Streptomyces sRNA 4677: a 242-nucleotide RNA from Streptomyces sp. GMY02. The literature on the family includes a 2014 paper in PLoS One by Hindra et al., "Complex intra-operonic dynamics mediated by a small RNA in Streptomyces coelicolor".
RNA sequence: CGCUCCGGUGGCGUCGGCGACUGAAAGACCAAGGACGACGGGGAAGAAAACACCCGACCAAGCCCCACCCCUCCCGCCCGUGGAGCGCGCUCACUCGGGCGGGUGAACAUCCGGCUCGGGCGGUUUCGGCGGCCCCCGGCGGCUCUACGCUCGGCGACACAACCGCAGACAUGAGACGGCCCCCGCCGGGACGGCAAUCCCAGUGCGAGGGCCUGACCACCGAGGAAGGACCAAGCUUCCCG
Numbered sequence: 001c002g003c004u005c006c007g008g009u010g011g012c013g014u015c016g017g018c019g020a021c022u023g024a025a026a027g028a029c030c031a032a033g034g035a036c037g038a039c040g041g042g043g044a045a046g047a048a049a050a051c052a053c054c055c056g057a058c059c060a061a062g063c064c065c066c067a068c069c070c071c072u073c074c075c076g077c078c079c080g081u082g083g084a085g086c087g088c089g090c091u092c093a094c095u096c097g098g099g100c101g102g103g104u105g106a107a108c109a110u111c112c113g114g115c116u117c118g119g120g121c122g123g124u125u126u127c128g129g130c131g132g133c134c135c136c137c138g139g140c141g142g143c144u145c146u147a148c149g150c151u152c153g154g155c156g157a158c159a160c161a162a163c164c165g166c167a168g169a170c171a172u173g174a175g176a177c178g179g180c181c182c183c184c185g186c187c188g189g190g191a192c193g194g195c196a197a198u199c200c201c202a203g204u205g206c207g208a209g210g211g212c213c214u215g216a217c218c219a220c221c222g223a224g225g226a227a228g229g230a231c232c233a234a235g236c237u238u239c240c241c242g
Base pairs, nucleotide, nucleotide: 007221008220009219010218016078017077018076019075091106092105093104094103095102096101119155121153122152123151178213179212180211181210182209184207185206186205188201189200190199191198224240225239226238227237228236
Located in the intergenic region between anti-sigma factor SCO4677 gene and a putative regulatory protein gene SCO4676. scr4677 expression requires the SCO4677 activity and scr4677 sRNA itself seem to affect the levels of the SCO4676-associated transcripts. Rfam classes the family as a small RNA.